[Rfam]
Rfam assigns this 109-nucleotide RNA from Raphanus sativus to the family "Small nucleolar RNA Z107/R87". The base pairs follow the family's consensus structure, which was predicted with RNAfold. The family's RNA type in Rfam is C/D-box small nucleolar RNA. NCBI's taxonomy places the organism under Eukaryota, Pentapetalae, rosids, Brassicaceae, Raphanus. Gene Ontology terms of the family: nucleolus and RNA processing.
RNA sequence: AAAGGCAGUGACGACUCGGAAAUAUUCAAGCUCAACAGACCGGAACUAGGCGUUUCUUUCAAUUGGAGGAUUCGUUUCUAUGUCGAUAAUCCCGCUGAACUGAGCCUUA
Numbered sequence: 001a002a003a004g005g006c007a008g009u010g011a012c013g014a015c016u017c018g019g020a021a022a023u024a025u026u027c028a029a030g031c032u033c034a035a036c037a038g039a040c041c042g043g044a045a046c047u048a049g050g051c052g053u054u055u056c057u058u059u060c061a062a063u064u065g066g067a068g069g070a071u072u073c074g075u076u077u078c079u080a081u082g083u084c085g086a087u088a089a090u091c092c093c094g095c096u097g098a099a100c101u102g103a104g105c106c107u108u109a
Stems, first nucleotide, its partner, number of pairs: 002108005